[Rfam]
RNA: Makes More Granules Regulator RNA (mmgR)
RNA sequence: CGUCACCGCCCUUCUGGGCGUUUCCUCCCUAGACUUGGGCCGGGCUUGUCCUGGCCCUUUUUUUUUGAGGGA
Numbered sequence: 001c002g003u004c005a006c007c008g009c010c011c012u013u014c015u016g017g018g019c020g021u022u023u024c025c026u027c028c029c030u031a032g033a034c035u036u037g038g039g040c041c042g043g044g045c046u047u048g049u050c051c052u053g054g055c056c057c058u059u060u061u062u063u064u065u066u067g068a069g070g071g072a
Stems, first nucleotide, its partner, number of pairs: 008019004037057008